[Rfam]
RNA sequence: GGCUGACUUUAUCCUCUCACUGCUUGGAGUCUUAGGCAGUGAGACUUUUGUCCACAUAUAUCUAAGCUGACUUGUCUUCACUCAGGGCACCAUAGGGAUGGGUUGGCUGCCGUUUGCCUUCUGAUUUUGCAGAGUCAAACAAUG
Numbered sequence: 001g002g003c004u005g006a007c008u009u010u011a012u013c014c015u016c017u018c019a020c021u022g023c024u025u026g027g028a029g030u031c032u033u034a035g036g037c038a039g040u041g042a043g044a045c046u047u048u049u050g051u052c053c054a055c056a057u058a059u060a061u062c063u064a065a066g067c068u069g070a071c072u073u074g075u076c077u078u079c080a081c082u083c084a085g086g087g088c089a090c091c092a093u094a095g096g097g098a099u100g101g102g103u104u105g106g107c108u109g110c111c112g113u114u115u116g117c118c119u120u121c122u123g124a125u126u127u128u129g130c131a132g133a134g135u136c137a138a139a140c141a142a143u144g
Stems, first nucleotide, its partner, number of pairs: 002055001004054002008050001015044005021038004069136005082124006090116001095111002098108001
Small nucleolar RNA SNORA79: a 144-nucleotide RNA from Camelus dromedarius. From the family's description: ACA65 (SNORA79) is a member of the H/ACA class of snoRNAs that guide the sites of modification of uridines to pseudouridines. A reference for the family is Schattner et al. (2006), "A computational screen for mammalian pseudouridylation guide H/ACA RNAs", RNA.